[Rfam]
RNA sequence: UCAAUUAGCCAAGGACCAUUUUUUGUGCAUUACUUUCAACAUGGCUUUGUUCAUGUUUCUAUUUCUGUACAUGGAGAAAGUCCCCGGAAAAUCAGACUAUCACCAGUCGGAUAACCUUUCAAUGACUUGUUGGAAUAGAAGGGUUGUCAUGAGUCAGAAAUUUUCCAACAAUUUUUCCUAAUUGAUAGAAAUAUGGUCACUCUUCCUGGAAGGGUAACUCAAUGGGGCUUACUCUGGCUAGCGAUUG
Numbered sequence: 001u002c003a004a005u006u007a008g009c010c011a012a013g014g015a016c017c018a019u020u021u022u023u024u025g026u027g028c029a030u031u032a033c034u035u036u037c038a039a040c041a042u043g044g045c046u047u048u049g050u051u052c053a054u055g056u057u058u059c060u061a062u063u064u065c066u067g068u069a070c071a072u073g074g075a076g077a078a079a080g081u082c083c084c085c086g087g088a089a090a091a092u093c094a095g096a097c098u099a100u101c102a103c104c105a106g107u108c109g110g111a112u113a114a115c116c117u118u119u120c121a122a123u124g125a126c127u128u129g130u131u132g133g134a135a136u137a138g139a140a141g142g143g144u145u146g147u148c149a150u151g152a153g154u155c156a157g158a159a160a161u162u163u164u165c166c167a168a169c170a171a172u173u174u175u176u177c178c179u180a181a182u183u184g185a186u187a188g189a190a191a192u193a194u195g196g197u198c199a200c201u202c203u204u205c206c207u208g209g210a211a212g213g214g215u216a217a218c219u220c221a222a223u224g225g226g227g228c229u230u231a232c233u234c235u236g237g238c239u240a241g242c243g244a245u246u247g
Stems, first nucleotide, its partner, number of pairs: 002247004007239005014198006022074001024071005040055005078230003082227004095108004110165002117160004125154004137147001139145002200214006

This 247-nucleotide RNA sequence from Austropuccinia psidii belongs to the Rfam family "RNase MRP".
Lineage of the source: Eukaryota > Opisthokonta > Basidiomycota > Pucciniales > Austropuccinia psidii.
Rfam links the family to the GO terms ribonuclease MRP activity, rRNA processing and ribonuclease MRP complex.